Shown here is an 86-nucleotide RNA sequence from Atractosteus spatula, a member of the family "Small nucleolar RNA SNORD35". Rfam describes the family as follows. U35 is a C/D box snoRNA located in intron 6 of ribosomal protein L13A and intron 3 of ribosomal protein S11 in humans and at homologous positions in mouse and chicken ribosomal protein genes. U35 guides the methylation of 2'-O-ribose sites in 28S rRNA. The family is grouped with related families in Rfam's "SNORD35 clan". By type it is a C/D-box small nucleolar RNA.

[Rfam]
RNA sequence: UGCAGGUGAUGGUCUUUCUCACGAUGGUCUUCCUAGUCCUGGCGACUCUGAUGACGACUGCCUCAUGGCAUUGCUGAUGCAGCUCA
Number, nucleotide and partner (000 for none) at each position: 001u081002g080003c079004a078005g000006g000007u000008g000009a000010u000011g000012g000013u000014c000015u000016u000017u000018c000019u000020c000021a000022c000023g000024a000025u000026g000027g000028u000029c000030u000031u000032c000033c000034u000035a000036g000037u000038c000039c000040u000041g000042g000043c000044g000045a000046c000047u000048c000049u000050g000051a000052u000053g000054a000055c000056g000057a000058c000059u000060g000061c000062c000063u000064c000065a000066u000067g000068g000069c000070a000071u000072u000073g000074c000075u000076g000077a000078u004079g003080c002081a001082g000083c000084u000085c000086a000